[Rfam]
RNA: Small nucleolar RNA R160
RNA sequence: ACCAAAAUGAUGAAGAUUUCUGAUCUGAAUUCCAAUGUGGAAUUGUAGCAUUAAUGGUCUUCAAAGUUCUCUGAUUGCU
Numbered sequence: 001a002c003c004a005a006a007a008u009g010a011u012g013a014a015g016a017u018u019u020c021u022g023a024u025c026u027g028a029a030u031u032c033c034a035a036u037g038u039g040g041a042a043u044u045g046u047a048g049c050a051u052u053a054a055u056g057g058u059c060u061u062c063a064a065a066g067u068u069c070u071c072u073g074a075u076u077g078c079u
Base pairs, nucleotide, nucleotide: 001079003077004076005075